[Rfam]
RNA sequence: CCCUGCAUUCGAAAGUGAUUACGGUCCCUCCCGUGGCCGGGUCAUUGAUAGUGCAGGGAGAGGAGUGCGAGAGUUUUCCCGUGUUUGGGGGAGUCUAUGUCUCCCCCAAACCCUGUUACUGUCGGACA
Numbered sequence: 001c002c003c004u005g006c007a008u009u010c011g012a013a014a015g016u017g018a019u020u021a022c023g024g025u026c027c028c029u030c031c032c033g034u035g036g037c038c039g040g041g042u043c044a045u046u047g048a049u050a051g052u053g054c055a056g057g058g059a060g061a062g063g064a065g066u067g068c069g070a071g072a073g074u075u076u077u078c079c080c081g082u083g084u085u086u087g088g089g090g091g092a093g094u095c096u097a098u099g100u101c102u103c104c105c106c107c108a109a110a111c112c113c114u115g116u117u118a119c120u121g122u123c124g125g126a127c128a
Stems, first nucleotide, its partner, number of pairs: 001058009014046007023038004066125001068124003072120003083111005088105003092102002
A member of the RNA family "Small nucleolar RNA SNORA71" from Certhia brachydactyla, 128 nucleotides long. Gene Ontology terms of the family: nucleolus and RNA processing. By type it is an H/ACA-box small nucleolar RNA. A reference for the family is Ganot et al. (1997), "The family of box ACA small nucleolar RNAs is defined by an evolutionarily conserved secondary structure and ubiquitous sequence elements essential for RNA accumulation", Genes Dev. NCBI's taxonomy places the organism under Eukaryota, Deuterostomia, Craniata, Aves, Certhia. The match comes from Rfam's covariance-model search (98 bits). Rfam's curators write: The members of this family belong to the H/ACA class of snoRNAs which bind a number of proteins (including dyskerin, Gar1p and Nop10p) to form snoRNP complexes.